[Rfam]
RNA sequence: GGCAGAGGACGACCUCUCCAUUACGGCUCUUACUCCGGGACGACCCGG
Numbered sequence: 001g002g003c004a005g006a007g008g009a010c011g012a013c014c015u016c017u018c019c020a021u022u023a024c025g026g027c028u029c030u031u032a033c034u035c036c037g038g039g040a041c042g043a044c045c046c047g048g
Stems, first nucleotide, its partner, number of pairs: 001019002004017005035048005

This 48-nucleotide sequence from Falsirhodobacter algicola belongs to the Rfam family "Guanidine-II riboswitch aptamer (mini-ykkC)". Pairs were carried over by alignment from the consensus structure, which is taken from published work. NCBI's taxonomy places the organism under Bacteria, Pseudomonadati, Pseudomonadota, Alphaproteobacteria, Falsirhodobacter. It scores 39 bits against the family's covariance model.